[Rfam]
RNA: DUF3800-III RNA
RNA sequence: ACAGCGGUAUCGUAAUGCCUGGUGACUUUGGUUGUCCGUAGGACAACCUAGCUACUCCUGAAAUGGAACGGGACAGACUGAAAUCGAAGCCCAGGGUGAGCCGCUCC
Numbered sequence: 001a002c003a004g005c006g007g008u009a010u011c012g013u014a015a016u017g018c019c020u021g022g023u024g025a026c027u028u029u030g031g032u033u034g035u036c037c038g039u040a041g042g043a044c045a046a047c048c049u050a051g052c053u054a055c056u057c058c059u060g061a062a063a064u065g066g067a068a069c070g071g072g073a074c075a076g077a078c079u080g081a082a083a084u085c086g087a088a089g090c091c092c093a094g095g096g097u098g099a100g101c102c103g104c105u106c107c
Stems, first nucleotide, its partner, number of pairs: 003105005010099003018095005026089003033045005052071002056067003